[Rfam]
RNA sequence: GCGGCAGGCCGCUUUAUCGCUGCCGGCAAUUAUAGUCGGCAGAGGAAAGUCCGGGCAACACAGGGCACCGUGUUUCCUAGCGGGAAGAUCUUUGAAAAAGGAUAGCAACGUAACAGAAAAUAACCACCUUGUUUUGACGUGUCAUUACGGGGAACGGGUGAAAAGGUGCGGUAAAAGCGCACCGGUGAUGAUGGCAACAUCGUCAGCCGUACGUCUCACGGGUUGCAAGGCCAUGUAUAUUCUGGUAGUUUGCCGCUGUUGCGGUACUGCGAAGCUGCCCGCUUUGCUUCUCUUCGCACAAGGAAAUCAGGAGGGGUAGGCUGCACGACUCCGACAGUGAUGCCGGAGCCAGAUAAAUGAUAAAGCUUCCCGGGUAACCGGGAUGACAGAACCCGGCUUACAGUUCUGCCAUUUUA
Dot-bracket structure: (.((((((.(((((((((.((((((((.......))))))))....[[[.[[[[[((((.....[[.((((((((((.....)))))(((((.....)))).)((..(((((...........((.((((((..............))))))...)).......((((((.......)))))).(((((((((....)))))))).)..))))))))))))))))...((((.......(((((..............................................(.((.]]....)).)..)))))......))))......(((((.((....)).)))))..........)))))))..........................]]]]]]]].).).)))))).)....
Numbered sequence: 001g002c003g004g005c006a007g008g009c010c011g012c013u014u015u016a017u018c019g020c021u022g023c024c025g026g027c028a029a030u031u032a033u034a035g036u037c038g039g040c041a042g043a044g045g046a047a048a049g050u051c052c053g054g055g056c057a058a059c060a061c062a063g064g065g066c067a068c069c070g071u072g073u074u075u076c077c078u079a080g081c082g083g084g085a086a087g088a089u090c091u092u093u094g095a096a097a098a099a100g101g102a103u104a105g106c107a108a109c110g111u112a113a114c115a116g117a118a119a120a121u122a123a124c125c126a127c128c129u130u131g132u133u134u135u136g137a138c139g140u141g142u143c144a145u146u147a148c149g150g151g152g153a154a155c156g157g158g159u160g161a162a163a164a165g166g167u168g169c170g171g172u173a174a175a176a177g178c179g180c181a182c183c184g185g186u187g188a189u190g191a192u193g194g195c196a197a198c199a200u201c202g203u204c205a206g207c208c209g210u211a212c213g214u215c216u217c218a219c220g221g222g223u224u225g226c227a228a229g230g231c232c233a234u235g236u237a238u239a240u241u242c243u244g245g246u247a248g249u250u251u252g253c254c255g256c257u258g259u260u261g262c263g264g265u266a267c268u269g270c271g272a273a274g275c276u277g278c279c280c281g282c283u284u285u286g287c288u289u290c291u292c293u294u295c296g297c298a299c300a301a302g303g304a305a306a307u308c309a310g311g312a313g314g315g316g317u318a319g320g321c322u323g324c325a326c327g328a329c330u331c332c333g334a335c336a337g338u339g340a341u342g343c344c345g346g347a348g349c350c351a352g353a354u355a356a357a358u359g360a361u362a363a364a365g366c367u368u369c370c371c372g373g374g375u376a377a378c379c380g381g382g383a384u385g386a387c388a389g390a391a392c393c394c395g396g397c398u399u400a401c402a403g404u405u406c407u408g409c410c411a412u413u414u415u416a
Stems, first nucleotide, its partner, number of pairs: 001412001003410006010403001011401001012365007020042008047399003051396005056225004065297002068221005073087005088103001089101004104216002108214005124157002127152006165183006185207001186205008229322004240312005291305001293303002329348005335342002